Rfam assigns this 340-nucleotide RNA sequence from Lentivirus simimdef to the family "HIV Rev response element". Pairs were carried over by alignment from the consensus structure, which is taken from published work. For this family Rfam cites "RNA molecules with structure dependent functions are uniquely folded" (Le et al., Nucleic Acids Res, 2002). Lineage of the source: Viruses > Riboviria > Artverviricota > Orthoretrovirinae > Lentivirus simimdef.

[Rfam]
RNA sequence: ACCAAGGCAAAAAGAAGAACGGUGCAUAGGGAAAAAAGAGCAGCCGUAGGAUUGGGAGCUUUGUUCCUUGGGUUCUUGGGAGCAGCAGGAAGCACUAUGGGCGCAGCGUCACUGACGCUGACGGUACAGGCCAGACAACUGCUGUCUGGUAUAGUGCAGCAGCAGAGCAAUCUGCUGAGAGCCAUAGAGGCGCAACAGCAUCUGUUGCAACUCUCAGUCUGGGGCAUUAAACAGCUUCAGGCACGGGUUCUUGCUGUGGAGAGAUACCUAAAGGAUCAACAGCUCUUAGGACUAUGGGGCUGCUCUGGAAAACUCAUUUGCACCACUUCUGUGCCUUGGA
Numbered sequence: 001a002c003c004a005a006g007g008c009a010a011a012a013a014g015a016a017g018a019a020c021g022g023u024g025c026a027u028a029g030g031g032a033a034a035a036a037a038g039a040g041c042a043g044c045c046g047u048a049g050g051a052u053u054g055g056g057a058g059c060u061u062u063g064u065u066c067c068u069u070g071g072g073u074u075c076u077u078g079g080g081a082g083c084a085g086c087a088g089g090a091a092g093c094a095c096u097a098u099g100g101g102c103g104c105a106g107c108g109u110c111a112c113u114g115a116c117g118c119u120g121a122c123g124g125u126a127c128a129g130g131c132c133a134g135a136c137a138a139c140u141g142c143u144g145u146c147u148g149g150u151a152u153a154g155u156g157c158a159g160c161a162g163c164a165g166a167g168c169a170a171u172c173u174g175c176u177g178a179g180a181g182c183c184a185u186a187g188a189g190g191c192g193c194a195a196c197a198g199c200a201u202c203u204g205u206u207g208c209a210a211c212u213c214u215c216a217g218u219c220u221g222g223g224g225c226a227u228u229a230a231a232c233a234g235c236u237u238c239a240g241g242c243a244c245g246g247g248u249u250c251u252u253g254c255u256g257u258g259g260a261g262a263g264a265u266a267c268c269u270a271a272a273g274g275a276u277c278a279a280c281a282g283c284u285c286u287u288a289g290g291a292c293u294a295u296g297g298g299g300c301u302g303c304u305c306u307g308g309a310a311a312a313c314u315c316a317u318u319u320g321c322a323c324c325a326c327u328u329c330u331g332u333g334c335c336u337u338g339g340a
Stems, first nucleotide, its partner, number of pairs: 002339008018327001021324004026319001028317001029315003037306009052289009065275004069270005074264004082257006092157006098128002102123002104120006130150008160177007178251006187213003192208007217242009
Its family is annotated with nucleus, protein binding and nuclear transport in the Gene Ontology. From the family's description: The Rev response element (RRE) is encoded within the HIV-env gene.